RNA sequence: AAAAAGGGCUUCUGCUAUGAGUAGCACAGUAAGACAGCUGAUUGCUCUCUCUGUGUGGAAUUGACAUCAGAGAUUUUGGAAGCAUAAUUUGUUUGGUAUCUGGGCAGCUAAUGAUCGUUUGUCCUGGUACCCAC
Numbered sequence: 001a002a003a004a005a006g007g008g009c010u011u012c013u014g015c016u017a018u019g020a021g022u023a024g025c026a027c028a029g030u031a032a033g034a035c036a037g038c039u040g041a042u043u044g045c046u047c048u049c050u051c052u053g054u055g056u057g058g059a060a061u062u063g064a065c066a067u068c069a070g071a072g073a074u075u076u077u078g079g080a081a082g083c084a085u086a087a088u089u090u091g092u093u094u095g096g097u098a099u100c101u102g103g104g105c106a107g108c109u110a111a112u113g114a115u116c117g118u119u120u121g122u123c124c125u126g127g128u129a130c131c132c133a134c
Stems, first nucleotide, its partner, number of pairs: 008083005013026005027055002032050003036046003056078007102132003107128004113123003
RNA: U11 spliceosomal RNA